Rfam assigns this 581-nucleotide part of an RNA from uncultured Acidobacteriales bacterium HF0200_23L05 to the family "Bacterial small subunit ribosomal RNA". It is one of the family's seed sequences.

RNA sequence: CAACUUGAGAGUUUGAUCCUGGCUCAGAAUCAACGCUGGCGGCGUGCCUCAUACAUGCAAGUCGAACGCGAAAGUAACCUUCGGGUUGCGAUUAGAGUGGCAGACGGGUGAGUAACGCGUGGGUGACCUACCUUCGAGUGGGGGACAACCCCUGUAAUGGGGGCUAAUACCGCAUAACAUCCUGUUCUUAGAUGGACAGUGAUCAAAGCUGGCCAAGCUUCGGCUUGGCUGGUGCUUGUUGACGGACCCGCGUCCGAUUAGCUUGUUGGUGGGGUAAUGGCUCACCAAGGCUUCGAUCGGUAGCCGGCCUGAGAGGGCGGACGGCCACACUGGGACUGAGACACGGCCCAGACUCUUACGGGAGGCAGCAGUAGGGAAUUGUUCGCAAUGGGCGAAAGCCUGACGACGCAACGCCGCGUGGAGGAUGAAGAUCUUCGGGUUGUAAACUCCUGUCGGGAGGGAAGAAUAGCUUGUGGGUUAAUACCCCAUAGGCCUGACGGUACCUCUAGAGGAAGCCCCGGCUAACUCCGUGCCAGCAGCCGCGGUAAUACGGGGGGGGCGAGCGUUGUUCGGAUUUACUG
Dot-bracket structure: ........(((((.......))))).((((.((((((.(((((((((....(((.(((..(((..((..(...((((((....))))))...)...)))))......(((......((((((((..((...(..((((.(.((.....((((((...))))))......)).).....(((((((((......)))))).)))....((((((((((......)))))))))).))))..)..))))))))))(((....(((..((((((((.......)))))))))))......)))..((((((((....))))...))))))).(((((............))))).((((....))))...)))))).).....(.(((...(((((....))))).)))).)).))))))..((((......((((....)))).....))))...(.(((((...(.....(((((((.........))))))).....)....)))))....)..(((((......(((((.....((....)).......)))))))))).))))))))))..........